[Rfam]
RNA: ALIL pseudoknot
RNA sequence: CGCAUGUUUUGCCCAGGCGGAGCUCGACCGCCCGUUCCGCAAAUGAUUGCGUUGAUUGAAGAGUUCCGCGAGGAAUAUGGGGCUGAGCCAGCGCGGCGCCACCGGUUCGGGGCCGCUGGCGGAGGCCGAUCUGCAGGACGCUGCCGAUCGCCCCG
Numbered sequence: 001c002g003c004a005u006g007u008u009u010u011g012c013c014c015a016g017g018c019g020g021a022g023c024u025c026g027a028c029c030g031c032c033c034g035u036u037c038c039g040c041a042a043a044u045g046a047u048u049g050c051g052u053u054g055a056u057u058g059a060a061g062a063g064u065u066c067c068g069c070g071a072g073g074a075a076u077a078u079g080g081g082g083c084u085g086a087g088c089c090a091g092c093g094c095g096g097c098g099c100c101a102c103c104g105g106u107u108c109g110g111g112g113c114c115g116c117u118g119g120c121g122g123a124g125g126c127c128g129a130u131c132u133g134c135a136g137g138a139c140g141c142u143g144c145c146g147a148u149c150g151c152c153c154c155g
Stems, first nucleotide, its partner, number of pairs: 016032005078155005089150001091149001094146004